Rfam assigns this 89-nucleotide RNA sequence from Gossypium raimondii to the family "MIR7486 microRNA precursor family". Taxonomically the source falls in Gossypium (Eukaryota, Streptophyta, Streptophytina, Malvaceae). It is one of the family's seed sequences. Its family is annotated with miRNA-mediated post-transcriptional gene silencing and RISC complex in the Gene Ontology.

RNA sequence: CACAUCAGCGCGCUUUGCUUAUGUGGACACAAAUCGCACCUACGAGGAUGCGGUUUUCUGACACGUCCCCAGACAUCGCGCUGACGUGG
Number, nucleotide and partner (000 for none) at each position: 001c088002a087003c086004a000005u084006c083007a082008g081009c080010g079011c078012g077013c000014u075015u000016u073017g070018c000019u000020u000021a066022u000023g064024u063025g062026g000027a000028c000029a000030c000031a056032a055033a054034u053035c052036g051037c050038a049039c000040c047041u046042a000043c000044g000045a000046g041047g040048a000049u038050g037051c036052g035053g034054u033055u032056u031057u000058c000059u000060g000061a000062c025063a024064c023065g000066u021067c000068c000069c000070c017071a000072g000073a016074c000075a014076u000077c012078g011079c010080g009081c008082u007083g006084a005085c000086g003087u002088g001089g000